[Rfam]
Background: The family of this 194-nucleotide RNA from Erwinia sp. Leaf53 is "Yersinia sRNA 251".
RNA sequence: UGUAAGCCAGCAGCGUCCGCUGGCACAGUUCCGAACGCACGCAGUCCUGGGUACCGAAGCGGACGAUGCCGAUCAUCUCGUCUUCUUCAAAGCGCGCCAGCGCAUCGCUGAGGCCCGAUUUGACGUGCGACGGCAGGUCACACUGGGUGAUAUCGCCGUUAACGAUCACCGUGACGUUCUCGCCAAGGCGGGUC
Numbered sequence: 001u002g003u004a005a006g007c008c009a010g011c012a013g014c015g016u017c018c019g020c021u022g023g024c025a026c027a028g029u030u031c032c033g034a035a036c037g038c039a040c041g042c043a044g045u046c047c048u049g050g051g052u053a054c055c056g057a058a059g060c061g062g063a064c065g066a067u068g069c070c071g072a073u074c075a076u077c078u079c080g081u082c083u084u085c086u087u088c089a090a091a092g093c094g095c096g097c098c099a100g101c102g103c104a105u106c107g108c109u110g111a112g113g114c115c116c117g118a119u120u121u122g123a124c125g126u127g128c129g130a131c132g133g134c135a136g137g138u139c140a141c142a143c144u145g146g147g148u149g150a151u152a153u154c155g156c157c158g159u160u161a162a163c164g165a166u167c168a169c170c171g172u173g174a175c176g177u178u179c180u181c182g183c184c185a186a187g188g189c190g191g192g193u194c
Stems, first nucleotide, its partner, number of pairs: 002054003007049001014041003018037002061078003065074003083112003088107001093102003113193005119188003125134002137166003144158003171183004
Lineage of the source: Bacteria > Pseudomonadota > Gammaproteobacteria > Enterobacterales > Erwinia. Pairs were carried over by alignment from the consensus structure, which was predicted with RNAfold.